[Rfam]
The family of this 132-nucleotide RNA from Ursus americanus is "Small nucleolar RNA SNORA72". Lineage of the source: Eukaryota > Metazoa > Craniata > Sarcopterygii > Ursus. U72 is a member of the H/ACA class of snoRNAs. The snoRNA gene is located in intron 4 of the ribosomal L30 protein gene in human, mouse and chicken.
RNA sequence: CCACGAAUACUCUUGCUGUUCUGAUUUUGUAAUAAUUGGGGCAGGAUAAACAUUCACUGUAUUAAGACCAUGCAUGUGUCCCCAGACCUCAUUCUUCCCCUAGGUCUGGUUUUAUCAGUGCUGGUGAUAAAC
Numbered sequence: 001c002c003a004c005g006a007a008u009a010c011u012c013u014u015g016c017u018g019u020u021c022u023g024a025u026u027u028u029g030u031a032a033u034a035a036u037u038g039g040g041g042c043a044g045g046a047u048a049a050a051c052a053u054u055c056a057c058u059g060u061a062u063u064a065a066g067a068c069c070a071u072g073c074a075u076g077u078g079u080c081c082c083c084a085g086a087c088c089u090c091a092u093u094c095u096u097c098c099c100c101u102a103g104g105u106c107u108g109g110u111u112u113u114a115u116c117a118g119u120g121c122u123g124g125u126g127a128u129a130a131a132c
Stems, first nucleotide, its partner, number of pairs: 005055001016044011067125004072121002082109008